[Rfam]
RNA sequence: GGCGAUAAAUGACCGUCGCAAUAAACCUAUCGGACCCGGGGGCGGUACCCGGCGCCUCCACCACAGCCCAAAGGGCCUUCGAUCUUUGGGUUGCGGCGGGGGCGAAAUAGGAUCGACGAGGGUGUAAAGGGCGCGUUUUCGCUCGGCAUGGUUCCGCCGUUAUCGGGCCAUCUCAAUAGUUGCAAAUGACAACUAUGCUGAGGCUCGUCUCGCUGCGUAA
Numbered sequence: 001g002g003c004g005a006u007a008a009a010u011g012a013c014c015g016u017c018g019c020a021a022u023a024a025a026c027c028u029a030u031c032g033g034a035c036c037c038g039g040g041g042g043c044g045g046u047a048c049c050c051g052g053c054g055c056c057u058c059c060a061c062c063a064c065a066g067c068c069c070a071a072a073g074g075g076c077c078u079u080c081g082a083u084c085u086u087u088g089g090g091u092u093g094c095g096g097c098g099g100g101g102g103c104g105a106a107a108u109a110g111g112a113u114c115g116a117c118g119a120g121g122g123u124g125u126a127a128a129g130g131g132c133g134c135g136u137u138u139u140c141g142c143u144c145g146g147c148a149u150g151g152u153u154c155c156g157c158c159g160u161u162a163u164c165g166g167g168c169c170a171u172c173u174c175a176a177u178a179g180u181u182g183c184a185a186a187u188g189a190c191a192a193c194u195a196u197g198c199u200g201a202g203g204c205u206c207g208u209c210u211c212g213c214u215g216c217g218u219a220a
Stems, first nucleotide, its partner, number of pairs: 001143005014133004026122003030119003036052005053104007144159004
RNA: permuted transfer-messenger RNA
Organism: Rhodobium orientis